[Rfam]
RNA sequence: CAGAUUCAUCAAGAGAGGGCUGACGCCCCGCCAACCUGCUGUUUGAGCAAGGUGGUUAUUCCGUAAGGAAGAUGUGGCUUAUUCAGCAACCUCAAGCGUCACC
Numbered sequence: 001c002a003g004a005u006u007c008a009u010c011a012a013g014a015g016a017g018g019g020c021u022g023a024c025g026c027c028c029c030g031c032c033a034a035c036c037u038g039c040u041g042u043u044u045g046a047g048c049a050a051g052g053u054g055g056u057u058a059u060u061c062c063g064u065a066a067g068g069a070a071g072a073u074g075u076g077g078c079u080u081a082u083u084c085a086g087c088a089a090c091c092u093c094a095a096g097c098g099u100c101a102c103c
Stems, first nucleotide, its partner, number of pairs: 007074004015029001017028004030056003035052003038048003043098001077087003
SAM-I/IV (S-adenosyl methionine) riboswitch aptamer: a 103-nucleotide sequence. The sequence is in the family's curated seed alignment. The base pairs follow the family's consensus structure, which is taken from published work.